[Rfam]
RNA sequence: GUAAUGAACAUUGUUACAUGUAGCACUGGCUCGCAUAAAAAUUUGCCGGUCAGUGCUUAUGUGACAAUCCCCUUUGAU
Numbered sequence: 001g002u003a004a005u006g007a008a009c010a011u012u013g014u015u016a017c018a019u020g021u022a023g024c025a026c027u028g029g030c031u032c033g034c035a036u037a038a039a040a041a042u043u044u045g046c047c048g049g050u051c052a053g054u055g056c057u058u059a060u061g062u063g064a065c066a067a068u069c070c071c072c073u074u075u076g077a078u
Stems, first nucleotide, its partner, number of pairs: 002076003006072001010068010022057010

Rfam assigns this 78-nucleotide RNA sequence from Nicotiana attenuata to the family "MIR6145 microRNA precursor family".
Rfam links the family to the GO terms RISC complex and miRNA-mediated post-transcriptional gene silencing.
The source organism's lineage runs through Eukaryota, Streptophyta, Tracheophyta, asterids and Nicotiana.